[Rfam]
RNA sequence: CUGCAGGAUAGGUUACAAUACAUCUGUGUAGUGUUGUGUUGUCGUUCCCCCUGCAAAAACUAAAAUGCUUCCUGCUAUCCCUGUCUGUUGUACCUUAUUCUGACAGACAGGGACGUUUGGUCUCAGACAU
Numbered sequence: 001c002u003g004c005a006g007g008a009u010a011g012g013u014u015a016c017a018a019u020a021c022a023u024c025u026g027u028g029u030a031g032u033g034u035u036g037u038g039u040u041g042u043c044g045u046u047c048c049c050c051c052u053g054c055a056a057a058a059a060c061u062a063a064a065a066u067g068c069u070u071c072c073u074g075c076u077a078u079c080c081c082u083g084u085c086u087g088u089u090g091u092a093c094c095u096u097a098u099u100c101u102g103a104c105a106g107a108c109a110g111g112g113a114c115g116u117u118u119g120g121u122c123u124c125a126g127a128c129a130u
Base pairs, nucleotide, nucleotide: 003054004053005052006051007050015042016041017040018039019038020037021036022035024033080111081110082109083108085106086105087104088103

Shown here is a 130-nucleotide sequence from Hymenochirus boettgeri, a member of the family "Small nucleolar RNA SNORA63". The match comes from Rfam's covariance-model search (107 bits). A reference for the family is Mishra and Eliceiri (1997), "Three small nucleolar RNAs that are involved in ribosomal RNA precursor processing", Proc Natl Acad Sci U S A. Rfam describes the family as follows. E3 belongs to the H/ACA class of snoRNAs and is involved in the processing of eukaryotic pre-rRNA and has regions of complementarity to 18S rRNA. E3 is encoded in introns in the gene for protein synthesis initiation factor 4AII. Taxonomically the source falls in Hymenochirus (Eukaryota, Craniata, Dipnotetrapodomorpha, Anura).